[Rfam]
RNA: Glycine riboswitch aptamer
RNA sequence: GACACUCUGGAAAGCGCAGGUCCGGCUGGGGCUUGCCACCGAAGGGGAAGGCUGGAUCACCUAUCCGGCUAAGCUCUCAGGUUUCCCGACAGAGGGGGCGCG
Numbered sequence: 001g002a003c004a005c006u007c008u009g010g011a012a013a014g015c016g017c018a019g020g021u022c023c024g025g026c027u028g029g030g031g032c033u034u035g036c037c038a039c040c041g042a043a044g045g046g047g048a049a050g051g052c053u054g055g056a057u058c059a060c061c062u063a064u065c066c067g068g069c070u071a072a073g074c075u076c077u078c079a080g081g082u083u084u085c086c087c088g089a090c091a092g093a094g095g096g097g098g099c100g101c102g
Stems, first nucleotide, its partner, number of pairs: 003096001005094005016036007038082003041078002045076003051069007